[Rfam]
RNA sequence: GUCCCUCUGGUGCAGUGGUUCUUAACAGUUCAACAGUUCUAUCUCAAAAUUGUGAAAUGUUUAGGACCACUUGACCAG
Numbered sequence: 001g002u003c004c005c006u007c008u009g010g011u012g013c014a015g016u017g018g019u020u021c022u023u024a025a026c027a028g029u030u031c032a033a034c035a036g037u038u039c040u041a042u043c044u045c046a047a048a049a050u051u052g053u054g055a056a057a058u059g060u061u062u063a064g065g066a067c068c069a070c071u072u073g074a075c076c077a078g
Stems, first nucleotide, its partner, number of pairs: 014071006021064002024061004029056004
This 78-nucleotide RNA from Danio rerio belongs to the Rfam family "mir-203 microRNA precursor family".
The literature on the family includes a 2003 paper in Science by Lim et al., "Vertebrate microRNA genes".
The base pairs follow the family's consensus structure, which was predicted with RNAalifold.